A member of the RNA family "Eukaryotic large subunit ribosomal RNA" from Acaromyces ingoldii, 254 nucleotides of a longer RNA.
RNA sequence: CACUGGAGGUUAGACGUGUGUCGUUGGAUUCAGCUUUUUCUAAAAGUGUAUUUCCGGCGGUACAGGCCAGCAUCGGUUUUCUGGGCCGGAUAAGGGGGAGAGGAACGUAGCUUUCUUCGGAAAGUGUUAUAGCCUCUUUCUUGAUACGGCUUGGGGGACCGAGGCAUGCAGCGCGCCUUUUAGGCGGACCUUCGGGUACCUUCGCGCUUAGGAUGCUGGCGUAAUGGCCUUCAGUGACCCGUCUUGAAACACGG
Numbered sequence: 001c002a003c004u005g006g007a008g009g010u011u012a013g014a015c016g017u018g019u020g021u022c023g024u025u026g027g028a029u030u031c032a033g034c035u036u037u038u039u040c041u042a043a044a045a046g047u048g049u050a051u052u053u054c055c056g057g058c059g060g061u062a063c064a065g066g067c068c069a070g071c072a073u074c075g076g077u078u079u080u081c082u083g084g085g086c087c088g089g090a091u092a093a094g095g096g097g098g099a100g101a102g103g104a105a106c107g108u109a110g111c112u113u114u115c116u117u118c119g120g121a122a123a124g125u126g127u128u129a130u131a132g133c134c135u136c137u138u139u140c141u142u143g144a145u146a147c148g149g150c151u152u153g154g155g156g157g158a159c160c161g162a163g164g165c166a167u168g169c170a171g172c173g174c175g176c177c178u179u180u181u182a183g184g185c186g187g188a189c190c191u192u193c194g195g196g197u198a199c200c201u202u203c204g205c206g207c208u209u210a211g212g213a214u215g216c217u218g219g220c221g222u223a224a225u226g227g228c229c230u231u232c233a234g235u236g237a238c239c240c241g242u243c244u245u246g247a248a249a250c251a252c253g254g
Base pairs, nucleotide, nucleotide: 001236002235003234004233005232006231007230008229009228010227011226012225017064018063019062020061021060022059023058024057068218069217070216071215072214073213074212239254240253241252242251

Notes:
The match comes from Rfam's covariance-model search (3356 bits). Pairs were carried over by alignment from the consensus structure, which is taken from published work. The organism belongs to Acaromyces, within Eukaryota.